[Rfam]
RNA: MIR7504 microRNA precursor family
Organism: Gossypium schwendimanii
RNA sequence: AAUAGGAGAAUGACAAAUUAGAUUUUUCAUCUUGAUUUUCAACUUUUUUUCUCCUAAAAAAAUCCAAAUCCAAUUGAAAAUGCUAAAAAUCAGGAGGAAAAAUCUUAUUUGUCAUUCUCUUAUU
Numbered sequence: 001a002a003u004a005g006g007a008g009a010a011u012g013a014c015a016a017a018u019u020a021g022a023u024u025u026u027u028c029a030u031c032u033u034g035a036u037u038u039u040c041a042a043c044u045u046u047u048u049u050u051c052u053c054c055u056a057a058a059a060a061a062a063u064c065c066a067a068a069u070c071c072a073a074u075u076g077a078a079a080a081u082g083c084u085a086a087a088a089a090u091c092a093g094g095a096g097g098a099a100a101a102a103u104c105u106u107a108u109u110u111g112u113c114a115u116u117c118u119c120u121u122a123u124u
Base pairs, nucleotide, nucleotide: 001124002123003122004121005120006119007118008117009116010115011114012113013112014111015110016109017108018107020105021104022103023102024101025100026099027098030095031094032093033092034091035090036089037088038087039086041084045080046079047078048077